RNA: Guanidine-I riboswitch aptamer
Organism: Cellvibrio sp. KY-GH-1
RNA sequence: UAAAUAGAGAGCUAGGGUUCCGGUUGCAGAAUUGUUCUGCGAUGUCUGGUCCGAGAGCUUUCGACCUCAGGCUGGAUAUCAGCGACAGGGGUUACACGGCGGGAUAAAAGCCCGGGAGAU
Numbered sequence: 001u002a003a004a005u006a007g008a009g010a011g012c013u014a015g016g017g018u019u020c021c022g023g024u025u026g027c028a029g030a031a032u033u034g035u036u037c038u039g040c041g042a043u044g045u046c047u048g049g050u051c052c053g054a055g056a057g058c059u060u061u062c063g064a065c066c067u068c069a070g071g072c073u074g075g076a077u078a079u080c081a082g083c084g085a086c087a088g089g090g091g092u093u094a095c096a097c098g099g100c101g102g103g104a105u106a107a108a109a110g111c112c113c114g115g116g117a118g119a120u
Base pairs, nucleotide, nucleotide: 007062008061009060010059011058012057015052016051020049021048022046023043024042025041026040027039028038029037030036063093064092065091066090067089068088070086095115097118101113102112103111